Shown here is a 107-nucleotide RNA from Serratia symbiotica, a member of the family "ALIL pseudoknot". The family's RNA type in Rfam is cis-regulatory element. The source organism's lineage runs through Bacteria, Pseudomonadota, Enterobacterales, Yersiniaceae and Serratia symbiotica.
[Rfam]
RNA sequence: CGCUUAUUUUUGCUCGACCGCCACUGGAAAAAAUAAUGCCACUUAUGCAGCGCCUGAGUGGCACACACGGGGUCGGGCCGGUAUGUCGCGAGCUGGAUAUUGCCCCG
Dot-bracket structure: ...........((......))..............................................(((((......((.(((.(.(....).).))).)))))))
Numbered sequence: 001c002g003c004u005u006a007u008u009u010u011u012g013c014u015c016g017a018c019c020g021c022c023a024c025u026g027g028a029a030a031a032a033a034u035a036a037u038g039c040c041a042c043u044u045a046u047g048c049a050g051c052g053c054c055u056g057a058g059u060g061g062c063a064c065a066c067a068c069g070g071g072g073u074c075g076g077g078c079c080g081g082u083a084u085g086u087c088g089c090g091a092g093c094u095g096g097a098u099a100u101u102g103c104c105c106c107g
Stems, first nucleotide, its partner, number of pairs: 012021002068107005079102002082099003086095001088093001